RNA sequence: AGCUGACGUAAGCACAUACCUCCCAGUCCUUGCGUCAGCUGUUCCCCUCUGGAGGCUUUGACCUUCACACCUUAAGGGCCGCGGCUACCGCAGGCCCUUUUCU
Numbered sequence: 001a002g003c004u005g006a007c008g009u010a011a012g013c014a015c016a017u018a019c020c021u022c023c024c025a026g027u028c029c030u031u032g033c034g035u036c037a038g039c040u041g042u043u044c045c046c047c048u049c050u051g052g053a054g055g056c057u058u059u060g061a062c063c064u065u066c067a068c069a070c071c072u073u074a075a076g077g078g079c080c081g082c083g084g085c086u087a088c089c090g091c092a093g094g095c096c097c098u099u100u101u102c103u
Stems, first nucleotide, its partner, number of pairs: 001040005007034003050067006075098006081091004
RNA: Alphaproteobacterial ar15
Organism: Rhizobium sp. RU20A